[Rfam]
RNA sequence: GCGGAGACAGAUGUUUCCGUUCACUCCUCACACCACACUCCGCCCGGACUAUUGUCUGGGCGGUU
Numbered sequence: 001g002c003g004g005a006g007a008c009a010g011a012u013g014u015u016u017c018c019g020u021u022c023a024c025u026c027c028u029c030a031c032a033c034c035a036c037a038c039u040c041c042g043c044c045c046g047g048a049c050u051a052u053u054g055u056c057u058g059g060g061c062g063g064u065u
Stems, first nucleotide, its partner, number of pairs: 001020008041062007
Rfam assigns this 65-nucleotide sequence from Nodularia spumigena to the family "Cyanobacterial functional RNA 1".
The source organism's lineage runs through Bacteria, Bacillati, Cyanobacteriota, Nostocales and Nodularia spumigena.